Notes: Rfam assigns this 74-nucleotide RNA sequence from Acholeplasma laidlawii to the family "tRNA". The sequence is in the family's curated seed alignment.
RNA sequence: GCCUACUUAGCUCAGUUGGUUAGAGCACCUGACUGUUAAUCAGGGGGUCGCUGGUUCGAGUCCAGCAGUGGGCG
Numbered sequence: 001g002c003c004u005a006c007u008u009a010g011c012u013c014a015g016u017u018g019g020u021u022a023g024a025g026c027a028c029c030u031g032a033c034u035g036u037u038a039a040u041c042a043g044g045g046g047g048u049c050g051c052u053g054g055u056u057c058g059a060g061u062c063c064a065g066c067a068g069u070g071g072g073c074g
Stems, first nucleotide, its partner, number of pairs: 001073007010026004028044005050066005
The family's RNA type in Rfam is transfer RNA. Rfam's curators write: Transfer RNA (tRNA) molecules are approximately 80 nucleotides in length. The organism belongs to Acholeplasma, within Bacteria. The family's consensus secondary structure is taken from published work.